Rfam assigns this 98-nucleotide RNA sequence from Roseiterribacter gracilis to the family "Bacterial small signal recognition particle RNA". Clan: SRP clan. The source organism's lineage runs through Bacteria, Pseudomonadota, Rhodospirillales, Roseiterribacteraceae and Roseiterribacter. On this family, see Regalia et al., Nucleic Acids Res 2002: "Prediction of signal recognition particle RNA genes". The family's RNA type in Rfam is non-coding RNA gene. Rfam links the family to the GO terms SRP-dependent cotranslational protein targeting to membrane, signal sequence recognition and signal recognition particle, plasma membrane targeting. It scores 58 bits against the family's covariance model.
RNA sequence: GAAGGUUGGCGGUGGGCGGAUCCCUCGCGAACCCGGUCAGGUCCGAAAGGAAGCAGCCGUACCGAGAUUCGGUUCGGGUCGCCGAUCCAGCCUUCCAC
Number, nucleotide and partner (000 for none) at each position: 001g000002a000003a000004g092005g091006u090007u089008g088009g000010c084011g083012g082013u081014g080015g000016g000017c076018g075019g074020a073021u072022c071023c000024c066025u065026c064027g063028c000029g000030a000031a000032c000033c000034c059035g058036g057037u056038c000039a000040g000041g000042u051043c050044c049045g000046a000047a000048a000049g044050g043051a042052a000053g000054c000055a000056g037057c036058c035059g034060u000061a000062c000063c027064g026065a025066g024067a000068u000069u000070c000071g022072g021073u020074u019075c018076g017077g000078g000079u000080c014081g013082c012083c011084g010085a000086u000087c000088c008089a007090g006091c005092c004093u000094u000095c000096c000097a000098c000